[Rfam]
RNA sequence: GCUGUCCUAGACCUGCCAGCACCACAGGUGUGGCUGUUCUGCUGUGCCUGUGACAUGGGAGCAAGGAGAAAGUGGCUAUCUCUAUACUCAGUGUUUAGAAACAAGUGAGUACUAAGAAUUAUUUCUUAGUAUUCACAUUA
Numbered sequence: 001g002c003u004g005u006c007c008u009a010g011a012c013c014u015g016c017c018a019g020c021a022c023c024a025c026a027g028g029u030g031u032g033g034c035u036g037u038u039c040u041g042c043u044g045u046g047c048c049u050g051u052g053a054c055a056u057g058g059g060a061g062c063a064a065g066g067a068g069a070a071a072g073u074g075g076c077u078a079u080c081u082c083u084a085u086a087c088u089c090a091g092u093g094u095u096u097a098g099a100a101a102c103a104a105g106u107g108a109g110u111a112c113u114a115a116g117a118a119u120u121a122u123u124u125c126u127u128a129g130u131a132u133u134c135a136c137a138u139u140a
Stems, first nucleotide, its partner, number of pairs: 003063003007059002010056001024051004074132001075130002084119001087116002092111006